[Rfam]
RNA sequence: GAUGUGUUGUUGCAAUAGUAAUCCUGCUCAGUACGAGAGGAACCGCAGGUUCAGACAUUUGGUGUAUGUGCUUGGCUGAGGAGCCAAUGGUGCGAAGCUACCAUCUGUGGGAUUAUGACUGAACGCCUCUAAGUCAGAAUCCCCCCUAAACGUAACGAUACCCUAGCGCCAUGGCUCCGUGGUUGGCCUGGGAUAGCCGGCCCUUCCGGGGGUCGGUGUGGAGUGCCAUUCGUGACUGGUUCGGAGAGCGGACAGAUGAGCUUCCGCCUCUCACCUUUUACGCACCGCAUGUUCGUGUCGAACCUGGUGCUAAAUCAUAUGUAGACGACCUGAUUCUGGGUCAGGGUUUCGUACGUGGCAGAGCAGCUACCCCGUUGCGAUCCAUUGAGAGUCAUCCCUCGAUCCAACCUUUUGU
Numbered sequence: 001g002a003u004g005u006g007u008u009g010u011u012g013c014a015a016u017a018g019u020a021a022u023c024c025u026g027c028u029c030a031g032u033a034c035g036a037g038a039g040g041a042a043c044c045g046c047a048g049g050u051u052c053a054g055a056c057a058u059u060u061g062g063u064g065u066a067u068g069u070g071c072u073u074g075g076c077u078g079a080g081g082a083g084c085c086a087a088u089g090g091u092g093c094g095a096a097g098c099u100a101c102c103a104u105c106u107g108u109g110g111g112a113u114u115a116u117g118a119c120u121g122a123a124c125g126c127c128u129c130u131a132a133g134u135c136a137g138a139a140u141c142c143c144c145c146c147u148a149a150a151c152g153u154a155a156c157g158a159u160a161c162c163c164u165a166g167c168g169c170c171a172u173g174g175c176u177c178c179g180u181g182g183u184u185g186g187c188c189u190g191g192g193a194u195a196g197c198c199g200g201c202c203c204u205u206c207c208g209g210g211g212g213u214c215g216g217u218g219u220g221g222a223g224u225g226c227c228a229u230u231c232g233u234g235a236c237u238g239g240u241u242c243g244g245a246g247a248g249c250g251g252a253c254a255g256a257u258g259a260g261c262u263u264c265c266g267c268c269u270c271u272c273a274c275c276u277u278u279u280a281c282g283c284a285c286c287g288c289a290u291g292u293u294c295g296u297g298u299c300g301a302a303c304c305u306g307g308u309g310c311u312a313a314a315u316c317a318u319a320u321g322u323a324g325a326c327g328a329c330c331u332g333a334u335u336c337u338g339g340g341u342c343a344g345g346g347u348u349u350c351g352u353a354c355g356u357g358g359c360a361g362a363g364c365a366g367c368u369a370c371c372c373c374g375u376u377g378c379g380a381u382c383c384a385u386u387g388a389g390a391g392u393c394a395u396c397c398c399u400c401g402a403u404c405c406a407a408c409c410u411u412u413u414g415u
Stems, first nucleotide, its partner, number of pairs: 006159008016148003021051001023049005052107004060100003067094005072087006109143003116136005165311007312413003318332002321329001338405005344398003348391002355385004360381001363378005